[Rfam]
Nucleotides: 112
Base pairs, nucleotide, nucleotide: 023102024101025100026099027098028097030095035093037091038090039089040088041087042086048083049082050081051080052079
Number, partner (000 for none) and nucleotide at each position: 001000a002000u003000u004000u005000u006000u007000u008000a009000u010000u011000u012000u013000a014000c015000a016000u017000u018000a019000c020000u021000c022000a023102c024101a025100g026099a027098u028097u029000u030095u031000c032000a033000a034000a035093c036000c037091u038090a039089a040088a041087c042086g043000g044000g045000g046000g047000u048083g049082c050081u051080u052079g053000c054000g055000u056000a057000g058000a059000u060000u061000u062000c063000a064000g065000c066000a067000a068000u069000g070000g071000a072000a073000c074000u075000u076000c077000g078000a079052c080051a081050a082049g083048u084000u085000a086042c087041g088040u089039u090038u091037a092000c093035g094000g095030a096000u097028g098027a099026u100025c101024u102023g103000g104000a105000g106000g107000c108000u109000u110000a111000a112000c
The record is a 112-nucleotide RNA from Ignatzschineria ureiclastica, which matches "t44 RNA" in Rfam. The base pairs follow the family's consensus structure, which was predicted with LocARNA. The literature on the family includes a 2002 paper in Nucleic Acids Res by Tjaden et al., "Transcriptome analysis of Escherichia coli using high-density oligonucleotide probe arrays".